A member of the RNA family "mir-6 microRNA precursor family" from Drosophila mojavensis, 68 nucleotides long. Taxonomically the source falls in mojavensis species complex (Eukaryota, Panorpida, Muscomorpha, Ephydroidea). The family is grouped with related families in Rfam's "mir-6 clan". On this family, see Mourelatos et al., Genes Dev 2002: "miRNPs: a novel class of ribonucleoproteins containing numerous microRNAs". Rfam's curators write: This family consists of the microRNA (miRNA) precursor mir-6 which appears to be Drosophila specific. Animal miRNAs are transcribed as ~70nt precursors and subsequently processed by the Dicer enzyme to give a ~22nt product. In this case the mature sequence comes from the 3' arm of the precursor. The extents of the hairpin precursors are not generally known and are estimated based on hairpin prediction.

[Rfam]
RNA sequence: AAGUAGAGAGAAUAGAUGCUGUGAGUAUAUCUGUUGCAUUUAUAUCACAGUGGCUGUUCUUUUUGUAC
Number, nucleotide and partner (000 for none) at each position: 001a000002a000003g000004u065005a064006g000007a062008g061009a060010g059011a058012a057013u056014a000015g000016a000017u052018g051019c050020u049021g048022u047023g046024a000025g000026u044027a043028u042029a041030u000031c000032u000033g000034u000035u000036g000037c000038a000039u000040u000041u029042a028043u027044a026045u000046c023047a022048c021049a020050g019051u018052g017053g000054c000055u000056g013057u012058u011059c010060u009061u008062u007063u000064u005065g004066u000067a000068c000